[Rfam]
RNA: skipping-rope RNA
Organism: Acetanaerobacterium elongatum
RNA sequence: GGAUAUUGAGGUCGGAAAUGGUUCCCGACGCACUUCUAAUGAAGUACCUGAGAUGCAGGAUACACCGCCCUGCCAAUAUCC
Numbered sequence: 001g002g003a004u005a006u007u008g009a010g011g012u013c014g015g016a017a018a019u020g021g022u023u024c025c026c027g028a029c030g031c032a033c034u035u036c037u038a039a040u041g042a043a044g045u046a047c048c049u050g051a052g053a054u055g056c057a058g059g060a061u062a063c064a065c066c067g068c069c070c071u072g073c074c075a076a077u078a079u080c081c
Base pairs, nucleotide, nucleotide: 001081002080003079004078005077006076007075008074011029012028013027014026015025019067020066021065022064031050032045033044034043035042055073056072057071058070059069